[Rfam]
RNA sequence: GAACAUAACCUGAAAACGAUUACAAAAAUACUUGUAAAGGAGCUGGAUGUUCAGAUGGGUACAAUUGUAUGUCAAGAUUGCCAAAGAAUUAUUGAACAUUAUGAGGAUGAGAAGGUUUCCACUCUUUAUAGUACUUGUCCGUCAUGCAAUCCGAAAGAGAAAAAAUAAAAUAGUGUGACAUAAUGAAAACCCCACCGGAUAUCUGGUGGGGUUCA
Dot-bracket structure: ...............((..((...(.....(((((((.(................(((.(.......(..............)...).))).....).)))))))..)...)).))........................(((((((.........................)))))))........(((((((((((....)))))))))))..
Numbered sequence: 001g002a003a004c005a006u007a008a009c010c011u012g013a014a015a016a017c018g019a020u021u022a023c024a025a026a027a028a029u030a031c032u033u034g035u036a037a038a039g040g041a042g043c044u045g046g047a048u049g050u051u052c053a054g055a056u057g058g059g060u061a062c063a064a065u066u067g068u069a070u071g072u073c074a075a076g077a078u079u080g081c082c083a084a085a086g087a088a089u090u091a092u093u094g095a096a097c098a099u100u101a102u103g104a105g106g107a108u109g110a111g112a113a114g115g116u117u118u119c120c121a122c123u124c125u126u127u128a129u130a131g132u133a134c135u136u137g138u139c140c141g142u143c144a145u146g147c148a149a150u151c152c153g154a155a156a157g158a159g160a161a162a163a164a165a166u167a168a169a170a171u172a173g174u175g176u177g178a179c180a181u182a183a184u185g186a187a188a189a190c191c192c193c194a195c196c197g198g199a200u201a202u203c204u205g206g207u208g209g210g211g212u213u214c215a
Stems, first nucleotide, its partner, number of pairs: 016116002020113002025108001031105007039097001056091003060087001068083001141179007188213011
About this RNA: A member of the RNA family "SR1 sRNA" from Thalassobacillus cyri, 215 nucleotides long. The organism belongs to Thalassobacillus, within Bacteria. A search with the family's covariance model found it, with a score of 46 bits.